[Rfam]
RNA sequence: GACGGCCUCAGUAGAGCGAUCUGAGAGCUGGCAGAACCCCCUGUCUCCCGCGUGAGCGAUCGCGGGGGACACCGUUCUGUGCAACGGAAUGCUGAAAAGAGUCAGUGCAUACGACGCAUGGCUCCGUAUCAGGAGGAGCUUGUGUGUGCAGACACCGCAUCGCUCGGGAAGAGCAAGCUCUUCUCGCGGUCUCUGCAGUCCUU
Number, nucleotide and partner (000 for none) at each position: 001g000002a000003c030004g029005g028006c027007c025008u024009c023010a022011g021012u000013a000014g000015a000016g000017c000018g000019a000020u000021c011022u010023g009024a008025g007026a000027g006028c005029u004030g003031g080032c079033a078034g077035a076036a075037c074038c000039c000040c000041c000042u071043g070044u069045c068046u067047c066048c065049c064050g063051c062052g061053u000054g000055a000056g000057c000058g000059a000060u000061c052062g051063c050064g049065g048066g047067g046068g045069a044070c043071a042072c000073c000074g037075u036076u035077c034078u033079g032080u031081g000082c000083a000084a000085c000086g000087g000088a000089a000090u000091g000092c000093u000094g000095a000096a000097a000098a000099g000100a000101g000102u000103c000104a000105g000106u000107g000108c000109a000110u000111a000112c000113g000114a000115c000116g000117c000118a000119u000120g000121g000122c000123u000124c000125c000126g000127u000128a000129u000130c000131a000132g000133g000134a000135g000136g000137a000138g000139c000140u000141u000142g000143u000144g000145u000146g000147u000148g196149c195150a194151g193152a192153c000154a190155c189156c188157g187158c186159a000160u000161c000162g000163c000164u000165c000166g185167g184168g183169a182170a181171g180172a179173g178174c000175a000176a000177g000178c173179u172180c171181u170182u169183c168184u167185c166186g158187c157188g156189g155190u154191c000192u152193c151194u150195g149196c148197a000198g000199u000200c000201c000202u000203u000
Shown here is a 203-nucleotide RNA sequence from Parasynechococcus marenigrum, a member of the family "Cyano-2 RNA". By type it is a small RNA. Lineage of the source: Bacteria > Cyanobacteriota > Cyanophyceae > Synechococcales > Parasynechococcus marenigrum.